[Rfam]
RNA: Archaeal RNase P
RNA sequence: GAGAGAGGCUGGACGGCUGCCGGACCUUCAGGUCUGAGGAAAGUCUCCCCACCGCUCCGGACACACGAACAUCUGUAAAGGAUGUCGGGCGAGAGCCCGGGCCCUGGCACAGAAACGAUAACCAUCCCCUGCAAAUGCGAUGAUGCCAUAAGCUGAGGUCGCAGGGAGAGUGGAUGAAACGGCGAAUCCUCGUGGGUGCAAGUUGGAAAUCGGGAAGUACGAGCAGUCCGGAAUCGUCCCGGUUGGUUUUGGUAACGCUUAGCCGAAUGCCGUCGCUGCAAGAGUCCUCAGGGACCGUUUCUUACACUGCUGGGUGCAAGAAAGCUUUGCAGUAACAGAAGGGAGCUUACACGCCUCACUC
Numbered sequence: 001g002a003g004a005g006a007g008g009c010u011g012g013a014c015g016g017c018u019g020c021c022g023g024a025c026c027u028u029c030a031g032g033u034c035u036g037a038g039g040a041a042a043g044u045c046u047c048c049c050c051a052c053c054g055c056u057c058c059g060g061a062c063a064c065a066c067g068a069a070c071a072u073c074u075g076u077a078a079a080g081g082a083u084g085u086c087g088g089g090c091g092a093g094a095g096c097c098c099g100g101g102c103c104c105u106g107g108c109a110c111a112g113a114a115a116c117g118a119u120a121a122c123c124a125u126c127c128c129c130u131g132c133a134a135a136u137g138c139g140a141u142g143a144u145g146c147c148a149u150a151a152g153c154u155g156a157g158g159u160c161g162c163a164g165g166g167a168g169a170g171u172g173g174a175u176g177a178a179a180c181g182g183c184g185a186a187u188c189c190u191c192g193u194g195g196g197u198g199c200a201a202g203u204u205g206g207a208a209a210u211c212g213g214g215a216a217g218u219a220c221g222a223g224c225a226g227u228c229c230g231g232a233a234u235c236g237u238c239c240c241g242g243u244u245g246g247u248u249u250u251g252g253u254a255a256c257g258c259u260u261a262g263c264c265g266a267a268u269g270c271c272g273u274c275g276c277u278g279c280a281a282g283a284g285u286c287c288u289c290a291g292g293g294a295c296c297g298u299u300u301c302u303u304a305c306a307c308u309g310c311u312g313g314g315u316g317c318a319a320g321a322a323a324g325c326u327u328u329g330c331a332g333u334a335a336c337a338g339a340a341g342g343g344a345g346c347u348u349a350c351a352c353g354c355c356u357c358a359c360u361c
Base pairs, nucleotide, nucleotide: 001361002360003359005357006356007355008354009353010351011350012274013273014272015271016270017269021036022035023034024033025032041348042347043346045345046344047343048342049341050198051197052196053195058226060224064194065193066192067191068190069085070084071083072082073081086099087098088097089096090095100189101188105185107183108182122173123172124171125168127166128165129164130163131162132161145153146152202256203255204254205253209247210246211245212244213243